[Rfam]
RNA sequence: GGAUGUGAGGGCGAUCUGGCUGCGACAUCUGUCACCCCAUUGAUCGCCAGGGUUGAUUCGGCUGAUCUGGCUGGCUAGGCGGAUGUCCCCUUCCUCCCUCACCGCUCCAUGUGCGUCCCUCCCGAAGCUGCGCGCUCGGUCAAAGAGGACGACCACCCCCCAUAGAGGAGGACCGUUUCCUCGGUCAGGGGUAUACGAGUAGCUGCGCUCCCCUGCUAGAACCUCCAAACAAGCUCUCAAAGGAGAUUGCUUGUCCAAUUAAUCUGAGUUUGAAUUUCCUAAAGCUUUUCCCCCUCAACCUUAUAGCUCUUA
Numbered sequence: 001g002g003a004u005g006u007g008a009g010g011g012c013g014a015u016c017u018g019g020c021u022g023c024g025a026c027a028u029c030u031g032u033c034a035c036c037c038c039a040u041u042g043a044u045c046g047c048c049a050g051g052g053u054u055g056a057u058u059c060g061g062c063u064g065a066u067c068u069g070g071c072u073g074g075c076u077a078g079g080c081g082g083a084u085g086u087c088c089c090c091u092u093c094c095u096c097c098c099u100c101a102c103c104g105c106u107c108c109a110u111g112u113g114c115g116u117c118c119c120u121c122c123c124g125a126a127g128c129u130g131c132g133c134g135c136u137c138g139g140u141c142a143a144a145g146a147g148g149a150c151g152a153c154c155a156c157c158c159c160c161c162a163u164a165g166a167g168g169a170g171g172a173c174c175g176u177u178u179c180c181u182c183g184g185u186c187a188g189g190g191g192u193a194u195a196c197g198a199g200u201a202g203c204u205g206c207g208c209u210c211c212c213c214u215g216c217u218a219g220a221a222c223c224u225c226c227a228a229a230c231a232a233g234c235u236c237u238c239a240a241a242g243g244a245g246a247u248u249g250c251u252u253g254u255c256c257a258a259u260u261a262a263u264c265u266g267a268g269u270u271u272g273a274a275u276u277u278c279c280u281a282a283a284g285c286u287u288u289u290c291c292c293c294c295u296c297a298a299c300c301u302u303a304u305a306g307c308u309c310u311u312a
Stems, first nucleotide, its partner, number of pairs: 001108003005102007013093002018090002024087010035074002037070003042067004046062003116171002118168004122139004127135002140162001147158002202276001204274001211268001213266001215264001224258001229254005
Annotation: Rfam assigns this 312-nucleotide sequence from Heterocephalus glaber to the family "7SK RNA". For this family Rfam cites "Structural analyses of the 7SK ribonucleoprotein (RNP), the most abundant human small RNP of unknown function" (Wassarman and Steitz, Mol Cell Biol, 1991). It is annotated as a non-coding RNA gene. From the family's description: 7SK was discovered as an abundant small nuclear RNA in the mid-70s but a possible function has only recently been suggested. Two independent studies have found that 7SK RNA binds the CDK9/cyclin T complex (known as elongation factor P-TEFb). P-TEFb activates transcription by phosphorylating the C-terminal domain of RNA polymerase II. This process is negatively regulated by the 7SK RNP. The secondary structure of 7SK RNA shown here was proposed by Wasserman and Steitz on the basis of chemical modification and enzymatic cleavage experiments. This family contains a number of annotated pseudogenes and 7SK derived repeats. The threshold is artificially high to minimise the pseudogene count.